[Rfam]
RNA sequence: AAAUGAAUUAAGAGGCAACUCUUAACUGGCCAGGUGAGGAAAAGCCGAGAGGUUCAAGCUCAUCGGGCAGAAAACGGGGGGCAGUAGUACUAAACAGUCCCUGUGGGUGUGACGAAGGUAGUACUUCAACAGCGUCACAA
Numbered sequence: 001a002a003a004u005g006a007a008u009u010a011a012g013a014g015g016c017a018a019c020u021c022u023u024a025a026c027u028g029g030c031c032a033g034g035u036g037a038g039g040a041a042a043a044g045c046c047g048a049g050a051g052g053u054u055c056a057a058g059c060u061c062a063u064c065g066g067g068c069a070g071a072a073a074a075c076g077g078g079g080g081g082c083a084g085u086a087g088u089a090c091u092a093a094a095c096a097g098u099c100c101c102u103g104u105g106g107g108u109g110u111g112a113c114g115a116a117g118g119u120a121g122u123a124c125u126u127c128a129a130c131a132g133c134g135u136c137a138c139a140a
Stems, first nucleotide, its partner, number of pairs: 008025007026070003030067002033064006043054004074104007087124005109138006117130001
Shown here is a 140-nucleotide sequence, a member of the family "IMES-2 RNA motif".
Rfam classes the family as a non-coding RNA gene.
It is one of the family's seed sequences.
Pairs were carried over by alignment from the consensus structure, which is taken from published work.